[Rfam]
Nucleotides: 393
Stems, first nucleotide, its partner, number of pairs: 001389010011378001012358007020041002023038006046376003050373005055261004062295004067257005072086005087101001088099004102252002107250002109246003123193002125189007201219006221241001222239007265315004276305001279302001286300005322341008
Number, partner (000 for none) and nucleotide at each position: 001389c002388g003387a004386g005385u006384a007383a008382g009381u010380c011378a012358g013357a014356u015355a016354a017353u018352c019000g020041c021040g022000g023038u024037c025036a026035c027034a028033g029000g030000a031000a032000a033028c034027u035026g036025u037024g038023g039000a040021c041020g042000a043000g044000g045000a046376a047375a048374g049000u050373c051372c052371g053370a054369g055261c056260u057259c058258c059000a060000u061000a062295g063294g064293g065292c066000a067257g068256g069255g070254u071253g072086c073085u074084g075083g076082g077000u078000a079000a080000u081000a082076c083075c084074c085073a086072g087101u088099g089098g090097a091096g092000g093000u094000g095000a096091c097090u098089c099088c100000a101087a102252g103251g104000a105000a106000a107250g108249u109246g110245c111244a112000a113000c114000a115000g116000a117000g118000a119000g120000a121000u122000a123193c124192c125189g126188c127187u128186a129185g130184a131183c132000c133000c134000c135000u136000u137000g138000u139000u140000c141000g142000g143000u144000a145000g146000u147000a148000a149000u150000a151000c152000u153000g154000a155000u156000a157000c158000u159000u160000g161000u162000g163000g164000u165000g166000a167000g168000a169000a170000c171000a172000g173000c174000u175000u176000u177000u178000g179000a180000g181000c182000u183131g184130u185129c186128u187127a188126g189125u190000a191000a192124g193123g194000g195000u196000g197000g198000a199000a200000a201219g202218g203217u204216g205215a206214g207000g208000u209000a210000a211000g212000a213000g214206c215205u216204c217203a218202c219201c220000a221241g222239c223238a224237a225236c226235u227234a228233g229000g230000u231000g232000a233228c234227u235226a236225g237224u238223u239222g240000g241221c242000u243000a244111u245110g246109u247000a248000a249108a250107c251103c252102c253071c254070a255069u256068c257067u258058g259057g260056a261055g262000c263000a264000a265315g266314a267313c268312c269000a270000a271000g272000u273000a274000g275000g276305g277000a278000c279302a280000a281000a282000a283000a284000a285000a286300g287299c288298g289297g290296c291000u292065g293064c294063c295062c296290g297289u298288c299287g300286c301000g302279u303000c304000c305276c306000g307000u308000g309000g310000u311000a312268g313267g314266u315265c316000g317000c318000u319000u320000g321000a322341g323340c324339c325338a326337a327336u328335u329334g330000g331000c332000a333000a334329c335328a336327a337326u338325u339324g340323g341322c342000c343000u344000a345000g346000a347000u348000a349000g350000a351000u352018g353017a354016u355015u356014a357013u358012c359000c360000a361000a362000u363000a364000c365000a366000g367000a368000a369054c370053u371052c372051g373050g374048c375047u376046u377000a378011u379000a380010g381009a382008u383007u384006u385005g386004c387003u388002c389001g390000c391000u392000u393000u

A member of the RNA family "Bacterial RNase P class A" from Andreesenella acetica, 393 nucleotides long. By type it is a ribozyme. It scores 305 bits against the family's covariance model.